Shown here is a 163-nucleotide sequence from Caulobacter vibrioides, a member of the family "6S / SsrS RNA". From the family's description: E. coli 6S RNA was the first non coding RNA to be sequenced, but its function was unknown until recently. It consists of 184 nucleotides that fold into an extended hairpin structure with a large single-stranded internal bulge. The 6S RNA specifically associates with RNA polymerase holoenzyme containing the sigma70 specificity factor. The organism belongs to Caulobacter vibrioides, within Bacteria. By type it is a non-coding RNA gene. The match comes from Rfam's covariance-model search (47 bits). On this family, see Elkina et al., RNA Biol 2017: "6S RNA in Rhodobacter sphaeroides: 6S RNA and pRNA transcript levels peak in late exponential phase and gene deletion causes a high salt stress phenotype".

[Rfam]
RNA sequence: GUCUUGCUGUGGCUCUCGUCGAAGAUUUCUAUUCCCAGGGACCUUAAUCUCUCUAUCGGGACCUGUUCCCUCCCGUGGCCGUGGCUGCGGGAACACGGGGCCCACCUGUAACUAACAGGUUCGAGUGGAUUGAAACGUCUUCACGGUUCUUCGCGGCGCCGCC
Numbered sequence: 001g002u003c004u005u006g007c008u009g010u011g012g013c014u015c016u017c018g019u020c021g022a023a024g025a026u027u028u029c030u031a032u033u034c035c036c037a038g039g040g041a042c043c044u045u046a047a048u049c050u051c052u053c054u055a056u057c058g059g060g061a062c063c064u065g066u067u068c069c070c071u072c073c074c075g076u077g078g079c080c081g082u083g084g085c086u087g088c089g090g091g092a093a094c095a096c097g098g099g100g101c102c103c104a105c106c107u108g109u110a111a112c113u114a115a116c117a118g119g120u121u122c123g124a125g126u127g128g129a130u131u132g133a134a135a136c137g138u139c140u141u142c143a144c145g146g147u148u149c150u151u152c153g154c155g156g157c158g159c160c161g162c163c
Stems, first nucleotide, its partner, number of pairs: 002161001005158007012149001015146001017145003033129003036125001039122005058103003062099005071092009